Shown here is an 82-nucleotide RNA from Agromyces atrinae, a member of the family "ZMP/ZTP riboswitch aptamer (pfl RNA motif)". A search with the family's covariance model found it, with a score of 50 bits.

[Rfam]
RNA sequence: UGUGCGGGUCGCGACUGGCGUUGAGAUGGACACCAUCGGGGAGCGACUGGCUCGGAUCCGACCGCUCGCCUGGGCCGGAACG
Numbered sequence: 001u002g003u004g005c006g007g008g009u010c011g012c013g014a015c016u017g018g019c020g021u022u023g024a025g026a027u028g029g030a031c032a033c034c035a036u037c038g039g040g041g042a043g044c045g046a047c048u049g050g051c052u053c054g055g056a057u058c059c060g061a062c063c064g065c066u067c068g069c070c071u072g073g074g075c076c077g078g079a080a081c082g
Stems, first nucleotide, its partner, number of pairs: 004051002007048006015040002017070004026036004059077002062074002
Dot-bracket structure: ...((.((((((..(([[[[.....((((...))))..))..)))))).)).......((.((...]]]]..)).)).....